[Rfam]
RNA sequence: AUGUUUCUAUUUGACCGACAUGGGACAAUUCUUGUAUGCUAUUUGUUUCACUACAGAUACAAGAGAAAAGUAUCCUUGAGCUUUCUGUCUGAGUAGAGCAGCCAAGAUUGAAUGGGGGAAUAAAAUA
Number, nucleotide and partner (000 for none) at each position: 001a000002u061003g060004u059005u000006u057007c056008u055009a000010u000011u000012u050013g049014a000015c000016c000017g047018a046019c045020a044021u000022g000023g039024g000025a037026c000027a035028a000029u000030u000031c000032u000033u000034g000035u027036a000037u025038g000039c023040u000041a000042u000043u000044u020045g019046u018047u017048u000049c013050a012051c000052u000053a000054c000055a008056g007057a006058u000059a004060c003061a002062a000063g000064a000065g000066a000067a000068a000069a000070g000071u000072a000073u119074c118075c117076u116077u115078g000079a000080g000081c110082u000083u000084u107085c106086u105087g000088u000089c101090u100091g099092a000093g000094u000095a000096g000097a000098g000099c091100a090101g089102c000103c000104a000105a086106g085107a084108u000109u000110g081111a000112a000113u000114g000115g077116g076117g075118g074119a073120a000121u000122a000123a000124a000125a000126u000127a000
RNA: Small nucleolar RNA SNORA31